[Rfam]
RNA sequence: CGAUGAGGUAGAGGUCGCGGUUUUUAAUAGUAGCGUAAGGGAGAUGCAGAGGCAUCUACGAACUUACUUGAAAGGAAAAAUCGCCGAAGUUUGCUCAUUACUCUGUUUGAGCAUGCUGGGGCUGUAUCCGAACAGGAACAGAACUGUCACGUCUGCCUUAACCUGGCAAACGUGUUGUGCUAUCUUCAUG
Numbered sequence: 001c002g003a004u005g006a007g008g009u010a011g012a013g014g015u016c017g018c019g020g021u022u023u024u025u026a027a028u029a030g031u032a033g034c035g036u037a038a039g040g041g042a043g044a045u046g047c048a049g050a051g052g053c054a055u056c057u058a059c060g061a062a063c064u065u066a067c068u069u070g071a072a073a074g075g076a077a078a079a080a081u082c083g084c085c086g087a088a089g090u091u092u093g094c095u096c097a098u099u100a101c102u103c104u105g106u107u108u109g110a111g112c113a114u115g116c117u118g119g120g121g122c123u124g125u126a127u128c129c130g131a132a133c134a135g136g137a138a139c140a141g142a143a144c145u146g147u148c149a150c151g152u153c154u155g156c157c158u159u160a161a162c163c164u165g166g167c168a169a170a171c172g173u174g175u176u177g178u179g180c181u182a183u184c185u186u187c188a189u190g
Base pairs, nucleotide, nucleotide: 006185007184008183009182010181011180017084018083019082020081021080022079023078024077025076033069035067036066037065038064039063088117089116090115092113093112094111095110096109097108118145119144122141123140124139125138127136128135148174149173150172151171152170
This 190-nucleotide sequence from Bacillus sp. 1NLA3E belongs to the Rfam family "Lysine riboswitch aptamer". Taxonomically the source falls in Bacillus (Bacteria, Bacillota, Caryophanales, Bacillaceae). The family has 47 seed sequences and 3,224 matches in Rfam 15.1. Riboswitches are metabolite binding domains within certain messenger RNAs that serve as precision sensors for their corresponding targets.